[Rfam]
RNA: Small nucleolar RNA SNORD16
Organism: Megalops atlanticus
RNA sequence: UGCUGUGAUGGUGUAAUUUGCGUCCUACGCUGUGCUCGGCGACAGUUUGCCUGCUGUCACACGCUGGCACAGAGGGCUGACGAACAUCGAGUCUGAGCA
Numbered sequence: 001u002g003c004u005g006u007g008a009u010g011g012u013g014u015a016a017u018u019u020g021c022g023u024c025c026u027a028c029g030c031u032g033u034g035c036u037c038g039g040c041g042a043c044a045g046u047u048u049g050c051c052u053g054c055u056g057u058c059a060c061a062c063g064c065u066g067g068c069a070c071a072g073a074g075g076g077c078u079g080a081c082g083a084a085c086a087u088c089g090a091g092u093c094u095g096a097g098c099a
Stems, first nucleotide, its partner, number of pairs: 001099003021082004030072005039064002041058005